[Rfam]
The record is a 157-nucleotide RNA sequence from Peribacillus loiseleuriae, which matches "TPP riboswitch aptamer (THI element)" in Rfam. Pairs were carried over by alignment from the consensus structure, which is taken from published work.
RNA sequence: UAUUACCACUAGGGGUGCCUCUUUAAUGGAAAAUGGAAGCUGACCAAGAAAUUUGAAGCUUCUUAUUUACCGAAAAGGCUGAGAUUAGAGUGUGACUUUAAGACCCUUAGAACCUGAUCUGGAUUAUACCAGCGUAGGGAAGUGGAGGCGUCUAUAC
Numbered sequence: 001u002a003u004u005a006c007c008a009c010u011a012g013g014g015g016u017g018c019c020u021c022u023u024u025a026a027u028g029g030a031a032a033a034u035g036g037a038a039g040c041u042g043a044c045c046a047a048g049a050a051a052u053u054u055g056a057a058g059c060u061u062c063u064u065a066u067u068u069a070c071c072g073a074a075a076a077g078g079c080u081g082a083g084a085u086u087a088g089a090g091u092g093u094g095a096c097u098u099u100a101a102g103a104c105c106c107u108u109a110g111a112a113c114c115u116g117a118u119c120u121g122g123a124u125u126a127u128a129c130c131a132g133c134g135u136a137g138g139g140a141a142g143u144g145g146a147g148g149c150g151u152c153u154a155u156a157c
Stems, first nucleotide, its partner, number of pairs: 006145005011107004016101001017079004086100005113138004119132004
It scores 82 bits against the family's covariance model. Lineage of the source: Bacteria > Bacillota > Caryophanales > Bacillaceae > Peribacillus. Vitamin B(1) in its active form thiamin pyrophosphate (TPP) is an essential coenzyme that is synthesised by coupling of pyrimidine and thiazole moieties in bacteria. The previously detected thiamin-regulatory element, thi box was extended, resulting in a new, highly conserved RNA secondary structure, the THI element, which is widely distributed in eubacteria and also occurs in some archaea. Analysis of operon structures identified a large number of new candidate thiamin-regulated genes, mostly transporters, in various prokaryotic organisms.